[Rfam]
RNA: Small Cajal body specific RNA 1
Organism: Clupea harengus
RNA sequence: UUGCACUUGAUUCUAACCUGACUGUCUGCAGCCCAGGAGUGUACGCACUUUGGUGUCUGUUUGGAUGUGGCUGUCAGGUCAAUAGAGGUGCUAGACAAAACCCCCGUGAGAUUUAAGCCCAGAGUCUAAAGGACUGUGCUCUGUGUUAUGGUUCACGGAACAAUG
Numbered sequence: 001u002u003g004c005a006c007u008u009g010a011u012u013c014u015a016a017c018c019u020g021a022c023u024g025u026c027u028g029c030a031g032c033c034c035a036g037g038a039g040u041g042u043a044c045g046c047a048c049u050u051u052g053g054u055g056u057c058u059g060u061u062u063g064g065a066u067g068u069g070g071c072u073g074u075c076a077g078g079u080c081a082a083u084a085g086a087g088g089u090g091c092u093a094g095a096c097a098a099a100a101c102c103c104c105c106g107u108g109a110g111a112u113u114u115a116a117g118c119c120c121a122g123a124g125u126c127u128a129a130a131g132g133a134c135u136g137u138g139c140u141c142u143g144u145g146u147u148a149u150g151g152u153u154c155a156c157g158g159a160a161c162a163a164u165g
Stems, first nucleotide, its partner, number of pairs: 003091006016079003020075003024071003028060003031056001033055001034053001036051006105158001122141004127136001142155002145152002